A member of the RNA family "Small nucleolar RNA GlsR20" from Giardia duodenalis, 108 nucleotides long. Taxonomically the source falls in Giardia (Eukaryota, Metamonada, Diplomonadida, Giardiinae). On this family, see Hudson et al., Nucleic Acids Res 2012: "Evolutionarily divergent spliceosomal snRNAs and a conserved non-coding RNA processing motif in Giardia lamblia".
RNA sequence: AAAAAUGCCAGCUGAGUUACGUCUGUGUGCACAGGCGCGUCAGAGGCCGGCUAGAGCGCGACUGGUUGAGUUCCCAGAGCGAUCUGGGUGAUUAGCAGUCAUACAGUC
Numbered sequence: 001a002a003a004a005a006u007g008c009c010a011g012c013u014g015a016g017u018u019a020c021g022u023c024u025g026u027g028u029g030c031a032c033a034g035g036c037g038c039g040u041c042a043g044a045g046g047c048c049g050g051c052u053a054g055a056g057c058g059c060g061a062c063u064g065g066u067u068g069a070g071u072u073c074c075c076a077g078a079g080c081g082a083u084c085u086g087g088g089u090g091a092u093u094a095g096c097a098g099u100c101a102u103a104c105a106g107u108c
Base pairs, nucleotide, nucleotide: 007051008050009049011047012046013045020037021036022035023034024033025032026031060100061099062098063097064096066095067094068093069092073088074087075086076085077084078083
Its family is annotated with nucleolus and RNA processing in the Gene Ontology.